The record is a 113-nucleotide sequence from Jiangella asiatica, which matches "SAM riboswitch aptamer (S box leader)" in Rfam. For this family Rfam cites "The S box regulon: a new global transcription termination control system for methionine and cysteine biosynthesis genes in gram-positive bacteria" (Grundy and Henkin, Mol Microbiol, 1998).
RNA sequence: UCCUCAUCCAGAGGAGCUGAGGGACCGGCCCGAUGAAGCUCCGGCAACCGUCCGCGCACGCGCGACGACGGUGCCAAUUCCGGCCCGCCGGAACACGGUGGGAGAGAUGAGAA
Numbered sequence: 001u002c003c004u005c006a007u008c009c010a011g012a013g014g015a016g017c018u019g020a021g022g023g024a025c026c027g028g029c030c031c032g033a034u035g036a037a038g039c040u041c042c043g044g045c046a047a048c049c050g051u052c053c054g055c056g057c058a059c060g061c062g063c064g065a066c067g068a069c070g071g072u073g074c075c076a077a078u079u080c081c082g083g084c085c086c087g088c089c090g091g092a093a094c095a096c097g098g099u100g101g102g103a104g105a106g107a108u109g110a111g112a113a
Base pairs, nucleotide, nucleotide: 001113003111004110005109006108007107008106013042014041015040016039017038021031022030023029025083026082027081028080043075044074045073046072048071049070050069051068052067079105084102085101086100087099088098089097